RNA: SAM riboswitch aptamer (S box leader)
Organism: Sulfobacillus thermosulfidooxidans
RNA sequence: CUCUUAUCGAGAGCGGCGGAGGGACAGGCCCGAUGAAGCCCGGCAACCGGCAAUUUAUUGCCACGGUGCCAAUCCCGACCCCUUUUUUGGGGACGGAUGAGAG
Numbered sequence: 001c002u003c004u005u006a007u008c009g010a011g012a013g014c015g016g017c018g019g020a021g022g023g024a025c026a027g028g029c030c031c032g033a034u035g036a037a038g039c040c041c042g043g044c045a046a047c048c049g050g051c052a053a054u055u056u057a058u059u060g061c062c063a064c065g066g067u068g069c070c071a072a073u074c075c076c077g078a079c080c081c082c083u084u085u086u087u088u089g090g091g092g093a094c095g096g097a098u099g100a101g102a103g
Stems, first nucleotide, its partner, number of pairs: 001103008013041001015040003021031003027076002042070004047066002049062004074095001079092004